[Rfam]
RNA: dauA ncRNA motif
RNA sequence: CCGCCCCUGCCAGGAGCGCGCCGAGGGGCCGGGUUGUCCCGGCGUCUCCGCGCGGCCUGGCGGAUGGUCAUCCGAACCGAGGUGCCAUG
Dot-bracket structure: .((((....((...((..(((...((((((((......))))).)..))..)))..))...)).(((.........))).)))).....